[Rfam]
Shown here is a 393-nucleotide RNA from Neobacillus rhizophilus, a member of the family "Bacterial RNase P class B". Gene Ontology terms of the family: tRNA processing, dimeric ribonuclease P complex and ribonuclease P activity. Ribonuclease P (RNase P) is a ubiquitous endoribonuclease, found in archaea, bacteria and eukarya as well as chloroplasts and mitochondria. Lineage of the source: Bacteria > Bacillati > Bacilli > Caryophanales > Neobacillus.
RNA sequence: ACGUUCGGGUAAUCGCUGCAAGUCUUCUUGCAGAGGAAAGUCCAUGCUCGCACGAGCUGAGAUGCUCGUAGUGUUCGUGCCUAGCGAAUUCAUAAGCUAGGGCAGCCGGGUAGCUCAUUCGGUUGACGGCUGGGAAAAUACCUAAGUCCUUAGGAUAUGGUAGGUGUACCUUUAAAAGUGCCACAGUGACGAUUACCUCCUUAGAAAUGAGGAGGGUGGAACGGGUAAACCCCACGAGCGAGAAACCCAAAUUAUGGUAGGGGCACUUUCUCUAUCGGAAAUCAACGAGGAGAAGGACAGGUUCCACGUGAAUCUGUAGAUAGAUGAUUACCGCCUCAGUACGAGACUUGUAAGUCGUUUGCAGUACGGAGGUACAGAACAUGGCUUAUAGAA
Numbered sequence: 001a002c003g004u005u006c007g008g009g010u011a012a013u014c015g016c017u018g019c020a021a022g023u024c025u026u027c028u029u030g031c032a033g034a035g036g037a038a039a040g041u042c043c044a045u046g047c048u049c050g051c052a053c054g055a056g057c058u059g060a061g062a063u064g065c066u067c068g069u070a071g072u073g074u075u076c077g078u079g080c081c082u083a084g085c086g087a088a089u090u091c092a093u094a095a096g097c098u099a100g101g102g103c104a105g106c107c108g109g110g111u112a113g114c115u116c117a118u119u120c121g122g123u124u125g126a127c128g129g130c131u132g133g134g135a136a137a138a139u140a141c142c143u144a145a146g147u148c149c150u151u152a153g154g155a156u157a158u159g160g161u162a163g164g165u166g167u168a169c170c171u172u173u174a175a176a177a178g179u180g181c182c183a184c185a186g187u188g189a190c191g192a193u194u195a196c197c198u199c200c201u202u203a204g205a206a207a208u209g210a211g212g213a214g215g216g217u218g219g220a221a222c223g224g225g226u227a228a229a230c231c232c233c234a235c236g237a238g239c240g241a242g243a244a245a246c247c248c249a250a251a252u253u254a255u256g257g258u259a260g261g262g263g264c265a266c267u268u269u270c271u272c273u274a275u276c277g278g279a280a281a282u283c284a285a286c287g288a289g290g291a292g293a294a295g296g297a298c299a300g301g302u303u304c305c306a307c308g309u310g311a312a313u314c315u316g317u318a319g320a321u322a323g324a325u326g327a328u329u330a331c332c333g334c335c336u337c338a339g340u341a342c343g344a345g346a347c348u349u350g351u352a353a354g355u356c357g358u359u360u361g362c363a364g365u366a367c368g369g370a371g372g373u374a375c376a377g378a379a380c381a382u383g384g385c386u387u388a389u390a391g392a393a
Stems, first nucleotide, its partner, number of pairs: 004393003007389001008332007016033006038387003042384005047242005052069006075237005080101006102127001103125009128232002132171003139162004146156003178230002180226003196215008246262003266296007297317008334372004339367004